[Rfam]
Shown here is a 150-nucleotide sequence, a member of the family "RAGATH-6 RNA". A reference for the family is Weinberg et al. (2015), "New classes of self-cleaving ribozymes revealed by comparative genomics analysis", Nat Chem Biol.
RNA sequence: AUCUGUUUAGCCAUAGCAAUAUCGUUGAAAUGCAAAUCAUCUACUUAUGUCGUGAGACAUUAUUUAACCACGUUAAAGUAUAAUAAUAUAAGUUAGGUAUGCCCUUAUAAAGACUUAGGUAACGCUAAGGACUAUAUUAUUAUACUUCUU
Numbered sequence: 001a002u003c004u005g006u007u008u009a010g011c012c013a014u015a016g017c018a019a020u021a022u023c024g025u026u027g028a029a030a031u032g033c034a035a036a037u038c039a040u041c042u043a044c045u046u047a048u049g050u051c052g053u054g055a056g057a058c059a060u061u062a063u064u065u066a067a068c069c070a071c072g073u074u075a076a077a078g079u080a081u082a083a084u085a086a087u088a089u090a091a092g093u094u095a096g097g098u099a100u101g102c103c104c105u106u107a108u109a110a111a112g113a114c115u116u117a118g119g120u121a122a123c124g125c126u127a128a129g130g131a132c133u134a135u136a137u138u139a140u141u142a143u144a145c146u147u148c149u150u
Stems, first nucleotide, its partner, number of pairs: 010033002013031001019026001047060005076147015092132003095105003114129005